[Rfam]
RNA sequence: CGAAACUUUCAAUUCCGUAGUGCAUUGCAGUUGGUUUUAAUAAUUGCUGCAAGCGCUGCAGAAUUGGCAGGUUCGCU
Numbered sequence: 001c002g003a004a005a006c007u008u009u010c011a012a013u014u015c016c017g018u019a020g021u022g023c024a025u026u027g028c029a030g031u032u033g034g035u036u037u038u039a040a041u042a043a044u045u046g047c048u049g050c051a052a053g054c055g056c057u058g059c060a061g062a063a064u065u066g067g068c069a070g071g072u073u074c075g076c077u
Base pairs, nucleotide, nucleotide: 006070007069009067010066011065014062015061017059018058021055022054023053025052026051027050028049029048

Shown here is a 77-nucleotide sequence from Drosophila albomicans, a member of the family "mir-932 microRNA precursor family".
Rfam links the family to the GO terms RISC complex and miRNA-mediated post-transcriptional gene silencing.
A reference for the family is Berezikov et al. (2010), "Evolutionary flux of canonical microRNAs and mirtrons in Drosophila", Nat Genet.
Taxonomically the source falls in Drosophila (Eukaryota, Opisthokonta, Protostomia, Eremoneura).